[Rfam]
RNA: wcaG RNA
RNA sequence: UCGGGUUUCUUGCUUCUCCUUAAAAGCAAGUGGUGCGGAUGGGACUCUCUCCCGCCUGGUUUCUUUCUUCCAGUCAAAGAGAAAGUGGUGGUGCCAAAAC
Numbered sequence: 001u002c003g004g005g006u007u008u009c010u011u012g013c014u015u016c017u018c019c020u021u022a023a024a025a026g027c028a029a030g031u032g033g034u035g036c037g038g039a040u041g042g043g044a045c046u047c048u049c050u051c052c053c054g055c056c057u058g059g060u061u062u063c064u065u066u067c068u069u070c071c072a073g074u075c076a077a078a079g080a081g082a083a084a085g086u087g088g089u090g091g092u093g094c095c096a097a098a099a100c
Base pairs, nucleotide, nucleotide: 009030010029011028012027013026014025015024040054041053042052043051044050056073057072058071059070063085064084065083066082067081068080